[Rfam]
RNA sequence: GAAAUUCGGAGAGCGACCUCCUCCUCCCAGCGCUCCCGAUAGACUGGCAACACGCCUCCUCCCAGUUGUCAGUCACUCAAACGAGCCCACCGGAUCCUCCCCCGGUGGGCUUUUUGU
Dot-bracket structure: ......(((.(((((...............))))))))...((((((((((.............))))))))))........(((((((((((........))))))))))).....
Numbered sequence: 001g002a003a004a005u006u007c008g009g010a011g012a013g014c015g016a017c018c019u020c021c022u023c024c025u026c027c028c029a030g031c032g033c034u035c036c037c038g039a040u041a042g043a044c045u046g047g048c049a050a051c052a053c054g055c056c057u058c059c060u061c062c063c064a065g066u067u068g069u070c071a072g073u074c075a076c077u078c079a080a081a082c083g084a085g086c087c088c089a090c091c092g093g094a095u096c097c098u099c100c101c102c103c104g105g106u107g108g109g110c111u112u113u114u115u116g117u
Stems, first nucleotide, its partner, number of pairs: 007038003011035005042074010083112011
Background: A member of the RNA family "Alphaproteobacterial ar14" from Rhizobium sp. P32RR-XVIII, 117 nucleotides long.